[Rfam]
RNA sequence: UCUUAGAACGGCCUGAGGUAGAGGGGUUUUAGUCGGUAGGUCCGAGGACUUCUUCCUCGGGAAUCCGACACUACCCAGUCGUACGGACGGCUGGGUGUCUUUUGAAGAUUUCCCCUCUUCCAAGA
Numbered sequence: 001u002c003u004u005a006g007a008a009c010g011g012c013c014u015g016a017g018g019u020a021g022a023g024g025g026g027u028u029u030u031a032g033u034c035g036g037u038a039g040g041u042c043c044g045a046g047g048a049c050u051u052c053u054u055c056c057u058c059g060g061g062a063a064u065c066c067g068a069c070a071c072u073a074c075c076c077a078g079u080c081g082u083a084c085g086g087a088c089g090g091c092u093g094g095g096u097g098u099c100u101u102u103u104g105a106a107g108a109u110u111u112c113c114c115c116u117c118u119u120c121c122a123a124g125a
Stems, first nucleotide, its partner, number of pairs: 001125004017121002020118002023114003032069005041061008071097001073096005
Description
R2 RNA element: a 125-nucleotide RNA sequence from Agrilus planipennis. It scores 47 bits against the family's covariance model.